Shown here is a 68-nucleotide RNA sequence from Larimichthys crocea, a member of the family "Small nucleolar RNA SNORD82". Gene Ontology terms of the family: nucleolus and RNA processing. Pairs were carried over by alignment from the consensus structure, which was predicted with PFOLD. About the family: snoRNA U82 or Z25 is found in both humans and mice. NCBI's taxonomy places the organism under Eukaryota, Teleostei, Euteleosteomorpha, Ctenosquamata, Larimichthys. It is annotated as a C/D-box small nucleolar RNA. The literature on the family includes a 2002 paper in Mol Cell Biol by Galardi et al., "Purified box C/D snoRNPs are able to reproduce site-specific 2'-O-methylation of target RNA in vitro".
[Rfam]
RNA sequence: ACAAUUUAUGAUGAUCAACAAGGGACUUAAUACUGAUGUGUGAUGUCACCUGUUUUAUUCUGAAUUUG
Numbered sequence: 001a002c003a004a005u006u007u008a009u010g011a012u013g014a015u016c017a018a019c020a021a022g023g024g025a026c027u028u029a030a031u032a033c034u035g036a037u038g039u040g041u042g043a044u045g046u047c048a049c050c051u052g053u054u055u056u057a058u059u060c061u062g063a064a065u066u067u068g
Stems, first nucleotide, its partner, number of pairs: 002068003006064001